Rfam assigns this 90-nucleotide RNA from Streptomyces sp. sk2.1 to the family "NLPC-P60 RNA". The match comes from Rfam's covariance-model search (70 bits). Lineage of the source: Bacteria > Bacillati > Actinomycetes > Streptomycetaceae > Streptomyces. It is annotated as a cis-regulatory element. The base pairs follow the family's consensus structure, which is taken from published work.
RNA sequence: CGGUUCUUGCAUCUCCCGGCACCGAGUGACCGUAUUGACCCGUUGCGCUCACUCAUGGGGCAGUUUCGCGACCGCCCCGUCACCGGAGGU
Numbered sequence: 001c002g003g004u005u006c007u008u009g010c011a012u013c014u015c016c017c018g019g020c021a022c023c024g025a026g027u028g029a030c031c032g033u034a035u036u037g038a039c040c041c042g043u044u045g046c047g048c049u050c051a052c053u054c055a056u057g058g059g060g061c062a063g064u065u066u067c068g069c070g071a072c073c074g075c076c077c078c079g080u081c082a083c084c085g086g087a088g089g090u
Base pairs, nucleotide, nucleotide: 025053026052027051028050031047032046033045034044036042057078058077059076060075061074063072064071065070